[Rfam]
RNA sequence: UCAAACGGUAUUCGACGGUGAAUAAUAAAAAAUGGCAUUGCGACUCAUUCUAUUAUUGCUCGAGAAUACCCUUUGA
Dot-bracket structure: .......((((((...(((.(((((((.......................))))))))))...)))))).......
Description: This 76-nucleotide RNA from Caenorhabditis latens belongs to the Rfam family "mir-234 microRNA precursor family". Rfam 15.1 lists 45 matches to the family in 42 species. The family is grouped with related families in Rfam's "mir-137 clan". Pairs were carried over by alignment from the consensus structure, which was predicted with RNAalifold. The organism belongs to Caenorhabditis, within Eukaryota. Its family is annotated with RISC complex and miRNA-mediated post-transcriptional gene silencing in the Gene Ontology. The literature on the family includes a 2003 paper in Genes Dev by Lim et al., "The microRNAs of Caenorhabditis elegans".